[Rfam]
RNA sequence: GCUAAGGAAAGUAAAAACACAAUUCGGUUGGUAGUCCGAAUGUAUGAUUUAUUCAUAUCAGUAACCUUCCCUCCUAGGAUGUCCCUCUUUCCUCUUAUUUUU
Numbered sequence: 001g002c003u004a005a006g007g008a009a010a011g012u013a014a015a016a017a018c019a020c021a022a023u024u025c026g027g028u029u030g031g032u033a034g035u036c037c038g039a040a041u042g043u044a045u046g047a048u049u050u051a052u053u054c055a056u057a058u059c060a061g062u063a064a065c066c067u068u069c070c071c072u073c074c075u076a077g078g079a080u081g082u083c084c085c086u087c088u089u090u091c092c093u094c095u096u097a098u099u100u101u102u
Stems, first nucleotide, its partner, number of pairs: 005093007022041006042058006068079003
RNA: azaaromatic riboswitch aptamer (yjdF RNA)
Organism: Lactobacillus johnsonii